[Rfam]
RNA: S10-Clostridia ribosomal protein leader
Organism: Propionispora sp. 2/2-37
RNA sequence: CCUAGGCGAUGACGUGGGAGGUUGCCCGCGUAGCUUGCGGGGAAAUUUUCACGGAGAAUGUCCGUUCAUAGAAACCGGGCGAUAA
Numbered sequence: 001c002c003u004a005g006g007c008g009a010u011g012a013c014g015u016g017g018g019a020g021g022u023u024g025c026c027c028g029c030g031u032a033g034c035u036u037g038c039g040g041g042g043a044a045a046u047u048u049u050c051a052c053g054g055a056g057a058a059u060g061u062c063c064g065u066u067c068a069u070a071g072a073a074a075c076c077g078g079g080c081g082a083u084a085a
Base pairs, nucleotide, nucleotide: 014052015051016050018049019048020047021046025041026040027039028038029037059084060083061082062081064080065079066078067077